[Rfam]
RNA sequence: UUGAUAGAUGUCUUGGAAUGCACUGUUGAGGAACCUGUGACCCAAGUUUUUCAUUCAUUGUGCAAUGAAUGAAAAACUUGGGUCACAGGUUCCUCAACAGUGCAUUCCAAGACAUCUAUC
Numbered sequence: 001u002u003g004a005u006a007g008a009u010g011u012c013u014u015g016g017a018a019u020g021c022a023c024u025g026u027u028g029a030g031g032a033a034c035c036u037g038u039g040a041c042c043c044a045a046g047u048u049u050u051u052c053a054u055u056c057a058u059u060g061u062g063c064a065a066u067g068a069a070u071g072a073a074a075a076a077c078u079u080g081g082g083u084c085a086c087a088g089g090u091u092c093c094u095c096a097a098c099a100g101u102g103c104a105u106u107c108c109a110a111g112a113c114a115u116c117u118a119u120c
Base pairs, nucleotide, nucleotide: 006117007116008115009114010113011112013110014109015108016107017106018105019104020103021102022101023100024099025098026097027096028095030093031092032091
Rfam assigns this 120-nucleotide RNA from Notothenia coriiceps to the family "MIR397 microRNA precursor family". Pairs were carried over by alignment from the consensus structure, which was predicted with WAR. Gene Ontology terms of the family: miRNA-mediated post-transcriptional gene silencing and RISC complex. For this family Rfam cites "High throughput approaches reveal splicing of primary microRNA transcripts and tissue specific expression of mature microRNAs in Vitis vinifera" (Mica et al., BMC Genomics, 2009). The match comes from Rfam's covariance-model search (56 bits). The source organism's lineage runs through Eukaryota, Craniata, Actinopteri, Percomorphaceae and Notothenia.